[Rfam]
RNA sequence: AAGAAUAUGGUGAUGAUACGAAUAUUUCGUGGACUAGAGUUUCAGAUCCGGGCUCUUCUCCCAGAAUUUGAAGAAACAACCCUUGGCUGUCUGAGUAUCUCU
Number, nucleotide and partner (000 for none) at each position: 001a102002a000003g100004a000005a098006u097007a096008u095009g000010g000011u000012g000013a000014u000015g000016a000017u000018a000019c000020g000021a000022a000023u000024a000025u000026u000027u000028c000029g000030u000031g000032g000033a000034c000035u000036a000037g000038a000039g000040u073041u072042u071043c070044a000045g000046a000047u066048c064049c000050g062051g061052g060053c000054u000055c000056u000057u000058c000059u000060c052061c051062c050063a000064g048065a000066a047067u000068u000069u000070g043071a042072a041073g040074a000075a000076a000077c000078a000079a000080c000081c000082c000083u000084u000085g000086g000087c000088u000089g000090u000091c000092u000093g000094a000095g008096u007097a006098u005099c000100u003101c000102u001